A member of the RNA family "Purine riboswitch aptamer" from Cetobacterium somerae, 98 nucleotides long. Lineage of the source: Bacteria > Fusobacteriati > Fusobacteriales > Fusobacteriaceae > Cetobacterium somerae. A search with the family's covariance model found it, with a score of 64 bits.
RNA sequence: AAGAUUAUAUUUAAUUUGAACCAUAUAUACUCCGAAUACGGCGGAGAGUUUCUACGAGCUACCUUAAAUAGCUUUCUAUGGGUCACAACUUAGUAUUU
Numbered sequence: 001a002a003g004a005u006u007a008u009a010u011u012u013a014a015u016u017u018g019a020a021c022c023a024u025a026u027a028u029a030c031u032c033c034g035a036a037u038a039c040g041g042c043g044g045a046g047a048g049u050u051u052c053u054a055c056g057a058g059c060u061a062c063c064u065u066a067a068a069u070a071g072c073u074u075u076c077u078a079u080g081g082g083u084c085a086c087a088a089c090u091u092a093g094u095a096u097u098u
Base pairs, nucleotide, nucleotide: 018084019083021081022080023079024078025077030046031045032044033043034042056074057073058072059071060070061069
Rfam's curators write: Riboswitches are metabolite binding domains within certain messenger RNAs that serve as precision sensors for their corresponding targets.